The family of this 77-nucleotide RNA sequence from Desulfosoma caldarium is "Fluoride riboswitch aptamer (crcB RNA motif)".

RNA sequence: UAACACAGAGGCAAUGAAGUCUGCCUGAACCGCCUCGCACUCCGCCCAUGUGUGGGGAUGAUGACUUCUCCAGGGAG
Numbered sequence: 001u002a003a004c005a006c007a008g009a010g011g012c013a014a015u016g017a018a019g020u021c022u023g024c025c026u027g028a029a030c031c032g033c034c035u036c037g038c039a040c041u042c043c044g045c046c047c048a049u050g051u052g053u054g055g056g057g058a059u060g061a062u063g064a065c066u067u068c069u070c071c072a073g074g075g076a077g
Base pairs, nucleotide, nucleotide: 010025011024012023013022016068017067018066019065020064021063033057034056035055036054037053038052039051040050
The match comes from Rfam's covariance-model search (37 bits).